RNA sequence: AUGUGCCUACUCUCAAGAGCCUUCCUCAAGUUCGGAAGGUGCGACGGUGGGCAUCGGGGCGCGUGAACCGCCCGACCUCAUCCCUCGUAACCGCUUGAGACGGCCUUGCUCUGGAACGGGUAGGCGUCAAGGUUGCAGGGAGUGUUAGCGAUAAUCUGAGGGAACCACGAAGAAGCCCCGACCCUUGUGGUCGGGGUUGUUCACCUCAUACACUUUCCCGG
Numbered sequence: 001a002u003g004u005g006c007c008u009a010c011u012c013u014c015a016a017g018a019g020c021c022u023u024c025c026u027c028a029a030g031u032u033c034g035g036a037a038g039g040u041g042c043g044a045c046g047g048u049g050g051g052c053a054u055c056g057g058g059g060c061g062c063g064u065g066a067a068c069c070g071c072c073c074g075a076c077c078u079c080a081u082c083c084c085u086c087g088u089a090a091c092c093g094c095u096u097g098a099g100a101c102g103g104c105c106u107u108g109c110u111c112u113g114g115a116a117c118g119g120g121u122a123g124g125c126g127u128c129a130a131g132g133u134u135g136c137a138g139g140g141a142g143u144g145u146u147a148g149c150g151a152u153a154a155u156c157u158g159a160g161g162g163a164a165c166c167a168c169g170a171a172g173a174a175g176c177c178c179c180g181a182c183c184c185u186u187g188u189g190g191u192c193g194g195g196g197u198u199g200u201u202c203a204c205c206u207c208a209u210a211c212a213c214u215u216u217c218c219c220g221g
Stems, first nucleotide, its partner, number of pairs: 005052006013044002020039006054075001057073005084221002087217001089215002093211001096208004103204001107203002110158001174198010